Bacteroidete tryptophan peptide leader RNA: a 129-nucleotide RNA from Prevotella sp. CAG:487.
The organism belongs to Prevotella, within Bacteria.
The base pairs follow the family's consensus structure, which is taken from published work.
Rfam links the family to the GO terms S-adenosylmethionine metabolic process and regulation of gene expression.
By type it is a cis-regulatory leader.
The match comes from Rfam's covariance-model search (50 bits).
RNA sequence: CAAGUAUUAAACGAGACAAUAUGAAGAAUGUAAUGUUCACAUCAUGGUGGUGGCGUUUCUCAAGAUUGAAAAAGUCGUGAGCAACACUGCCGUGUGAAAACUUGUAAAGAUAUUCAUAGGAGGCCUGUU
Number, nucleotide and partner (000 for none) at each position: 001c000002a000003a000004g000005u000006a000007u000008u000009a000010a000011a000012c000013g000014a000015g000016a000017c000018a000019a000020u000021a000022u000023g000024a000025a000026g000027a000028a000029u000030g000031u000032a000033a000034u000035g000036u098037u097038c096039a000040c000041a000042u000043c094044a093045u092046g091047g090048u000049g088050g087051u086052g085053g000054c000055g000056u084057u083058u000059c081060u080061c079062a000063a000064g000065a075066u074067u073068g000069a000070a000071a000072a000073a067074g066075u065076c000077g000078u000079g061080a060081g059082c000083a057084a056085c052086a051087c050088u049089g000090c047091c046092g045093u044094g043095u000096g038097a037098a036099a000100a000101c000102u000103u000104g000105u000106a000107a000108a000109g000110a000111u000112a000113u000114u000115c000116a000117u000118a000119g000120g000121a000122g000123g000124c000125c000126u000127g000128u000129u000